Rfam assigns this 92-nucleotide RNA to the family "GP20-a RNA". The family's consensus secondary structure is taken from published work.
RNA sequence: AUUUGUCGGCAUUGCAGACGAUUAAAUGCGAUGGCGUUCCGUGCGCUGACUGGCAGCGCGUUUACAAGUCAAAUGCAGAACGCGAAAGGCAC
Numbered sequence: 001a002u003u004u005g006u007c008g009g010c011a012u013u014g015c016a017g018a019c020g021a022u023u024a025a026a027u028g029c030g031a032u033g034g035c036g037u038u039c040c041g042u043g044c045g046c047u048g049a050c051u052g053g054c055a056g057c058g059c060g061u062u063u064a065c066a067a068g069u070c071a072a073a074u075g076c077a078g079a080a081c082g083c084g085a086a087a088g089g090c091a092c
Stems, first nucleotide, its partner, number of pairs: 005019003010033005035082005043059005
Record summary
It is one of the family's seed sequences.